[Rfam]
RNA sequence: GAGUGUGUGGUGAUAAUACUUUUGUGGACUAGAGUUUCUGAUUUGGGGCCUAAAAAUUCUAAUUCUAAAGACACACCCUUGGCUGUCUGAGCACUUUU
Numbered sequence: 001g002a003g004u005g006u007g008u009g010g011u012g013a014u015a016a017u018a019c020u021u022u023u024g025u026g027g028a029c030u031a032g033a034g035u036u037u038c039u040g041a042u043u044u045g046g047g048g049c050c051u052a053a054a055a056a057u058u059c060u061a062a063u064u065c066u067a068a069a070g071a072c073a074c075a076c077c078c079u080u081g082g083c084u085g086u087c088u089g090a091g092c093a094c095u096u097u098u
Stems, first nucleotide, its partner, number of pairs: 001098003005094004035069003042062002045059003
The family of this 98-nucleotide RNA sequence from Kingdonia uniflora is "Small nucleolar RNA Z157/R69/R10". For this family Rfam cites "The high diversity of snoRNAs in plants: identification and comparative study of 120 snoRNA genes from Oryza sativa" (Chen et al., Nucleic Acids Res, 2003). Clan: SNORD52 clan. A search with the family's covariance model found it, with a score of 58 bits. Rfam links the family to the GO terms nucleolus and RNA processing. The base pairs follow the family's consensus structure, which was predicted with PFOLD.